[Rfam]
BsrC: an 89-nucleotide RNA from Neobacillus thermocopriae. Taxonomically the source falls in Neobacillus (Bacteria, Bacillati, Bacillota, Bacilli). Rfam 15.1 lists 572 matches to the family in 553 species. The 301 nucleotide sequence from Kouji Nakamura has been trimmed to a highly conserved ~85 nucleotide long core to form this family. Rfam classes the family as a small RNA. The base pairs follow the family's consensus structure, which was predicted with CMfinder.

Nucleotides: 089
Stems, first nucleotide, its partner, number of pairs: 035069003040064002042060005048054001
Number, partner (000 for none) and nucleotide at each position: 001000a002000u003000c004000u005000u006000a007000a008000a009000a010000a011000a012000c013000a014000g015000c016000g017000a018000a019000a020000g021000c022000c023000c024000u025000a026000a027000c028000c029000u030000c031000u032000c033000u034000u035069u036068c037067g038000c039000c040064c041063u042060u043059g044058c045057a046056g047000c048054u049000c050000c051000g052000a053000u054048g055000a056046c057045u058044g059043c060042g061000c062000c063041a064040g065000u066000g067037u068036g069035a070000a071000u072000u073000u074000u075000a076000g077000a078000u079000a080000u081000u082000a083000a084000u085000a086000a087000a088000a089000u